[Rfam]
RNA: Clostridiales-2 RNA
RNA sequence: AUAAACUGGGGUGUGCAGAGGGGGAACCCCUCGCAGUAUUAAGGGGAGGCUCAGACGUGUAGCGUCGUCGAAGGGGGU
Numbered sequence: 001a002u003a004a005a006c007u008g009g010g011g012u013g014u015g016c017a018g019a020g021g022g023g024g025a026a027c028c029c030c031u032c033g034c035a036g037u038a039u040u041a042a043g044g045g046g047a048g049g050c051u052c053a054g055a056c057g058u059g060u061a062g063c064g065u066c067g068u069c070g071a072a073g074g075g076g077g078u
Base pairs, nucleotide, nucleotide: 015034016033018032019031020029021028022027054066055065056064057063